[Rfam]
RNA sequence: GCGCUCUUAGCUCAGCUGGAUAGAGCGACGGCCUUCUAAGCCGUAGGUCGUAGGUUCGAACCCUACAGAGCGUG
Numbered sequence: 001g002c003g004c005u006c007u008u009a010g011c012u013c014a015g016c017u018g019g020a021u022a023g024a025g026c027g028a029c030g031g032c033c034u035u036c037u038a039a040g041c042c043g044u045a046g047g048u049c050g051u052a053g054g055u056u057c058g059a060a061c062c063c064u065a066c067a068g069a070g071c072g073u074g
Base pairs, nucleotide, nucleotide: 001073002072003071004070005069006068007067010026011025012024013023028044029043030042031041032040050066051065052064053063054062

The family of this 74-nucleotide RNA sequence from Candidatus Nesciobacter abundans is "tRNA". The organism belongs to Candidatus Nesciobacter, within Bacteria.